The record is a 319-nucleotide RNA sequence from Struthio camelus, which matches "Small Cajal body-specific RNA 7" in Rfam. Rfam 15.1 lists 570 matches to the family in 531 species. Gene Ontology terms of the family: nucleolus and RNA processing. The source organism's lineage runs through Eukaryota, Bilateria, Archosauria, Struthioniformes and Struthio camelus. The base pairs follow the family's consensus structure.
[Rfam]
RNA sequence: UGGAAGUGAUGAAACAGAGAUCAUUGGAUGCCUCUCUGAAUGGAGUGUGUGUGAUAAAUAUAAUUUGAAUUGAAGCAGACUUUUUGGGGGGAGGGGGAAGCAUGUGUGUGUAUGUGUGGUACAUAAAAGGCUAUAAACUGGGGGCACUGAUAAGGAAGUGCUGAUUCCGGAGUGCAUCUGAGGCAUGUUGUUAUAUUCUGGGGUGUUGCUUUUCAACAUUGCCAAUGAUUAGAGCCCAAAACAAGCUCACCAGACAAGCCUAGGCAUCUUAAAUCUCUAGCAGGUUCAUUAAUGAAAGUGAUCCUGUGAUCUGAUCCAA
Numbered sequence: 001u002g003g004a005a006g007u008g009a010u011g012a013a014a015c016a017g018a019g020a021u022c023a024u025u026g027g028a029u030g031c032c033u034c035u036c037u038g039a040a041u042g043g044a045g046u047g048u049g050u051g052u053g054a055u056a057a058a059u060a061u062a063a064u065u066u067g068a069a070u071u072g073a074a075g076c077a078g079a080c081u082u083u084u085u086g087g088g089g090g091g092a093g094g095g096g097g098a099a100g101c102a103u104g105u106g107u108g109u110g111u112a113u114g115u116g117u118g119g120u121a122c123a124u125a126a127a128a129g130g131c132u133a134u135a136a137a138c139u140g141g142g143g144g145c146a147c148u149g150a151u152a153a154g155g156a157a158g159u160g161c162u163g164a165u166u167c168c169g170g171a172g173u174g175c176a177u178c179u180g181a182g183g184c185a186u187g188u189u190g191u192u193a194u195a196u197u198c199u200g201g202g203g204u205g206u207u208g209c210u211u212u213u214c215a216a217c218a219u220u221g222c223c224a225a226u227g228a229u230u231a232g233a234g235c236c237c238a239a240a241a242c243a244a245g246c247u248c249a250c251c252a253g254a255c256a257a258g259c260c261u262a263g264g265c266a267u268c269u270u271a272a273a274u275c276u277c278u279a280g281c282a283g284g285u286u287c288a289u290u291a292a293u294g295a296a297a298g299u300g301a302u303c304c305u306g307u308g309a310u311c312u313g314a315u316c317c318a319a
Base pairs, nucleotide, nucleotide: 001318002317003316004315186218187217188216189215190214193206194205195204196203197202